[Rfam]
RNA: tRNA
Organism: Aspergillus ibericus
RNA sequence: GCCCCUAUGGCUCAGUGGUAGAGCGCAUCACUAGUAAUGAUGAGGUCCACGGUUCGAUCCCGUGUGGGGGCA
Numbered sequence: 001g002c003c004c005c006u007a008u009g010g011c012u013c014a015g016u017g018g019u020a021g022a023g024c025g026c027a028u029c030a031c032u033a034g035u036a037a038u039g040a041u042g043a044g045g046u047c048c049a050c051g052g053u054u055c056g057a058u059c060c061c062g063u064g065u066g067g068g069g070g071c072a
Stems, first nucleotide, its partner, number of pairs: 001071007010024004026042005048064005